[Rfam]
RNA sequence: UGGGAUGACCAGGCGACCGCGUGCCGCAUCAGCGGCCCGAGGAACGUCCGGGCUCCACAGAACAGGGUGGUGGGUAACGCCCACUCGGGGUAACCCGCAGGCCAGUGCCACAGAAAGUAAACCGCCAGGUCUUCCUGGUAAGGGUGAAAGGGUGGUGUAAGAGACCACCAGCGUCCCGGGUGACCGGGACGGCUAGGUAAACCCCACUCGGAGCAAGGUCAGACAGACUGCGUUAUGAGGGCUGUUCGCCCCAGCAGUUGGGUGGACCGCUAGAGGCUGUCGGCAACGGCAGCCGUAGAUAGAUGGUCGUCGCCGCCUCAUGCAGGCGGAACAGAACCCGGCGUAUCGGUCAUCCCAUUCA
Numbered sequence: 001u002g003g004g005a006u007g008a009c010c011a012g013g014c015g016a017c018c019g020c021g022u023g024c025c026g027c028a029u030c031a032g033c034g035g036c037c038c039g040a041g042g043a044a045c046g047u048c049c050g051g052g053c054u055c056c057a058c059a060g061a062a063c064a065g066g067g068u069g070g071u072g073g074g075u076a077a078c079g080c081c082c083a084c085u086c087g088g089g090g091u092a093a094c095c096c097g098c099a100g101g102c103c104a105g106u107g108c109c110a111c112a113g114a115a116a117g118u119a120a121a122c123c124g125c126c127a128g129g130u131c132u133u134c135c136u137g138g139u140a141a142g143g144g145u146g147a148a149a150g151g152g153u154g155g156u157g158u159a160a161g162a163g164a165c166c167a168c169c170a171g172c173g174u175c176c177c178g179g180g181u182g183a184c185c186g187g188g189a190c191g192g193c194u195a196g197g198u199a200a201a202c203c204c205c206a207c208u209c210g211g212a213g214c215a216a217g218g219u220c221a222g223a224c225a226g227a228c229u230g231c232g233u234u235a236u237g238a239g240g241g242c243u244g245u246u247c248g249c250c251c252c253a254g255c256a257g258u259u260g261g262g263u264g265g266a267c268c269g270c271u272a273g274a275g276g277c278u279g280u281c282g283g284c285a286a287c288g289g290c291a292g293c294c295g296u297a298g299a300u301a302g303a304u305g306g307u308c309g310u311c312g313c314c315g316c317c318u319c320a321u322g323c324a325g326g327c328g329g330a331a332c333a334g335a336a337c338c339c340g341g342c343g344u345a346u347c348g349g350u351c352a353u354c355c356c357a358u359u360c361a
Stems, first nucleotide, its partner, number of pairs: 001357010011346001012311007020039002023036005044344003048341005053213004060247004065209005070084005085099001086097004100204002105202002107198003122143002124139006151169006171193001172191008217268004226259006239251004275294008